Rfam assigns this 66-nucleotide RNA sequence from Propithecus coquereli to the family "GAIT element". Rfam classes the family as a cis-regulatory element. This family represents a cis-acting element in the 3'-UTR of the ceruloplasmin (Cp) gene called gamma interferon inhibitor of translation (GAIT). The GAIT element is involved in selective translational silencing of the Cp transcript. Ceruloplasmin (Cp) is a multifunctional, copper-containing glycoprotein produced by the liver and secreted into the plasma. As an acute-phase protein, its plasma concentration can double during multiple inflammatory conditions. Plasma Cp has been reported to be an independent risk factor for cardiovascular disease, including atherosclerosis, carotid restenosis after endarterectomy, and myocardial infarction. Translational silencing of Cp, and possibly other transcripts, mediated by the GAIT element may contribute to the resolution of the local inflammatory response following cytokine activation of macrophages. On this family, see Sampath et al., Mol Cell Biol 2003: "Transcript-selective translational silencing by gamma interferon is directed by a novel structural element in the ceruloplasmin mRNA 3' untranslated region". Its family is annotated with negative regulation of translation in the Gene Ontology.

[Rfam]
RNA sequence: GUAUGUGAAAAUUUACACCUCACUUUGUUAUAGUUAUAAAAGUGAAAAGAAGAAUUGGAAGCAUAU
Numbered sequence: 001g002u003a004u005g006u007g008a009a010a011a012u013u014u015a016c017a018c019c020u021c022a023c024u025u026u027g028u029u030a031u032a033g034u035u036a037u038a039a040a041a042g043u044g045a046a047a048a049g050a051a052g053a054a055u056u057g058g059a060a061g062c063a064u065a066u
Stems, first nucleotide, its partner, number of pairs: 001066006010056003016044003020040001026036002